[Rfam]
RNA sequence: UAGAGUUGUCUUAUGUCAAACUUUUUUAUGUUUGACCGAAUUUAUAGAAAAAAGUACAAAUAGUUGUGACACCAAAUGAGCACAUUAUGAAAAUAUAGUUUAUGGUGUAUCUAAUGAUUCUAAUUUGGUGUCAUAAAUCUUGGCGCUCUUUUCUAUAAAUUUGGUCGAAUUUUAAAAAGUUUGACUUAAGAUACUAAGA
Numbered sequence: 001u002a003g004a005g006u007u008g009u010c011u012u013a014u015g016u017c018a019a020a021c022u023u024u025u026u027u028a029u030g031u032u033u034g035a036c037c038g039a040a041u042u043u044a045u046a047g048a049a050a051a052a053a054g055u056a057c058a059a060a061u062a063g064u065u066g067u068g069a070c071a072c073c074a075a076a077u078g079a080g081c082a083c084a085u086u087a088u089g090a091a092a093a094u095a096u097a098g099u100u101u102a103u104g105g106u107g108u109a110u111c112u113a114a115u116g117a118u119u120c121u122a123a124u125u126u127g128g129u130g131u132c133a134u135a136a137a138u139c140u141u142g143g144c145g146c147u148c149u150u151u152u153c154u155a156u157a158a159a160u161u162u163g164g165u166c167g168a169a170u171u172u173u174a175a176a177a178a179g180u181u182u183g184a185c186u187u188a189a190g191a192u193a194c195u196a197a198g199a
Base pairs, nucleotide, nucleotide: 005194006193009191011189012188013187015185016184017183018182019181020180021179022178023177024176025175026174031169032168033167034166035165045155046154047153048152049151050150051149055145057143059141060140062138064136065135066134067133068132072128073127074126075125076124077123
RNA: MIR1435 microRNA precursor family